A member of the RNA family "F6 TB sRNA" from Rhodococcoides fascians, 57 nucleotides long.
NCBI's taxonomy places the organism under Bacteria, Bacillati, Actinomycetota, Actinomycetes, Rhodococcoides.
RNA sequence: CGUGUGGCUCCGUACUGCUGCCUGACCCCCGACCCGGCAGCAGUGCGGGGCCUUUUG
Dot-bracket structure: .(.(..((((((((((((((((.............))))))))))))))))..).).

It is annotated as a small RNA.